[Rfam]
RNA: DUF3800-VIII RNA
RNA sequence: AUCCCUGCUUUGCCGAAGCCCUGCGUUCCACGCGGGGUACUUUGUAGGCAAAGUGGGGGACU
Numbered sequence: 001a002u003c004c005c006u007g008c009u010u011u012g013c014c015g016a017a018g019c020c021c022u023g024c025g026u027u028c029c030a031c032g033c034g035g036g037g038u039a040c041u042u043u044g045u046a047g048g049c050a051a052a053g054u055g056g057g058g059g060a061c062u
Stems, first nucleotide, its partner, number of pairs: 002059013018038009